[Rfam]
RNA sequence: UUGACAUGAUAAUGAGAACGAUUAUUAUUAACACAAGCCAUCGCGAGGUGGCCCGAUAACGGGAUGUCGCGAGACAGCUGGUUAUCUCCUCAUCAGGCUAAUCACGGAUAUUUGACCCGCUCUUUGAGCGGGUCUUUUUUUG
Numbered sequence: 001u002u003g004a005c006a007u008g009a010u011a012a013u014g015a016g017a018a019c020g021a022u023u024a025u026u027a028u029u030a031a032c033a034c035a036a037g038c039c040a041u042c043g044c045g046a047g048g049u050g051g052c053c054c055g056a057u058a059a060c061g062g063g064a065u066g067u068c069g070c071g072a073g074a075c076a077g078c079u080g081g082u083u084a085u086c087u088c089c090u091c092a093u094c095a096g097g098c099u100a101a102u103c104a105c106g107g108a109u110a111u112u113u114g115a116c117c118c119g120c121u122c123u124u125u126g127a128g129c130g131g132g133u134c135u136u137u138u139u140u141u142g
Stems, first nucleotide, its partner, number of pairs: 034055001037052006060080003088097003114134008
About this RNA: PrrF RNA: a 142-nucleotide RNA from Pseudomonas sp. OIL-1. Rfam classes the family as a small RNA. Rfam's curators write: PrrF RNA is a small RNA involved in iron homeostasis and is found exclusively in Pseudomonas species. The match comes from Rfam's covariance-model search (107 bits). On this family, see Wilderman et al., Proc Natl Acad Sci U S A 2004: "Identification of tandem duplicate regulatory small RNAs in Pseudomonas aeruginosa involved in iron homeostasis".